[Rfam]
Shown here is a 72-nucleotide sequence from Streptomyces xanthophaeus, a member of the family "ASpks TB sRNA". The base pairs follow the family's consensus structure, which is taken from published work. Rfam 15.1 lists 9,052 matches to the family in 683 species.
RNA sequence: CUUGAUCGAGCCCAGCCGCAGCGGACCGUUCACCCGCUCCUGGCCGUACGUGGCCAGCAGCGCCUGCGCCUC
Numbered sequence: 001c002u003u004g005a006u007c008g009a010g011c012c013c014a015g016c017c018g019c020a021g022c023g024g025a026c027c028g029u030u031c032a033c034c035c036g037c038u039c040c041u042g043g044c045c046g047u048a049c050g051u052g053g054c055c056a057g058c059a060g061c062g063c064c065u066g067c068g069c070c071u072c
Base pairs, nucleotide, nucleotide: 016024017023031068033066035062036061040057041056042055044053045052046051